[Rfam]
RNA: ODC internal ribosome entry site (IRES)
Organism: Mustela putorius
RNA sequence: UUUUACACUGCUGCACUGAGGGCACAUGCAUCUUUAGUGGGACUUGGAAUUCUGGAGAGUUGUCUUUAUGAAAAACUGGUUAUAAUUUUCUUUAAAUCCCAUCUCUUAGUUUUCCCUUUUGUUAUAUUUCGGGGAACAUCGAGAAACC
Numbered sequence: 001u002u003u004u005a006c007a008c009u010g011c012u013g014c015a016c017u018g019a020g021g022g023c024a025c026a027u028g029c030a031u032c033u034u035u036a037g038u039g040g041g042a043c044u045u046g047g048a049a050u051u052c053u054g055g056a057g058a059g060u061u062g063u064c065u066u067u068a069u070g071a072a073a074a075a076c077u078g079g080u081u082a083u084a085a086u087u088u089u090c091u092u093u094a095a096a097u098c099c100c101a102u103c104u105c106u107u108a109g110u111u112u113u114c115c116c117u118u119u120u121g122u123u124a125u126a127u128u129u130c131g132g133g134g135a136a137c138a139u140c141g142a143g144a145a146a147c148c
Base pairs, nucleotide, nucleotide: 005080006079010076012074016070017068018067019066020065021064022063023062024061026060027059039053040052041051042050087146088145089144090143091142092141097136099134100133